Notes:
Shown here is a 178-nucleotide sequence from Vibrio astriarenae, a member of the family "Lysine riboswitch aptamer". The literature on the family includes a 2003 paper in Cell by Mandal et al., "Riboswitches Control Fundamental Biochemical Pathways in Bacillus subtilis and Other Bacteria".

RNA sequence: AAUAACAGAAGAGGAGCGCUGCCCAGGCAGGUGUAAUAGUGGAAUCGCAGUUCCAAUACUAUUCACUCAGGGGGAGUAGCGCCGAGAUGGGAGCACAAUGCGAUACACUCCUGUCGGUUGAAUGGGCUGAAUCCCUUCAACUGUCAUCAGCACGGCCUGAUGAUGAGCUUCUGAGGUA
Number, nucleotide and partner (000 for none) at each position: 001a000002a000003u000004a000005a000006c173007a172008g171009a170010a169011g168012a000013g000014g000015a000016g082017c081018g080019c079020u078021g077022c076023c000024c074025a000026g000027g000028c000029a000030g067031g066032u065033g064034u000035a063036a062037u061038a060039g000040u000041g000042g000043a000044a000045u000046c000047g000048c000049a000050g000051u000052u000053c000054c000055a000056a000057u000058a000059c000060u038061a037062u036063u035064c033065a032066c031067u030068c000069a000070g000071g000072g000073g000074g024075a000076g022077u021078a020079g019080c018081g017082c016083c000084g000085a000086g115087a114088u113089g112090g111091g110092a109093g108094c000095a000096c000097a104098a000099u000100g000101c000102g000103a000104u097105a000106c000107a000108c093109u092110c091111c090112u089113g088114u087115c086116g142117g141118u140119u139120g138121a137122a136123u000124g135125g134126g133127c000128u000129g000130a000131a000132u000133c126134c125135c124136u122137u121138c120139a119140a118141c117142u116143g000144u163145c162146a161147u160148c159149a158150g157151c000152a000153c000154g000155g000156c000157c150158u149159g148160a147161u146162g145163a144164u000165g000166a000167g000168c011169u010170u009171c008172u007173g006174a000175g000176g000177u000178a000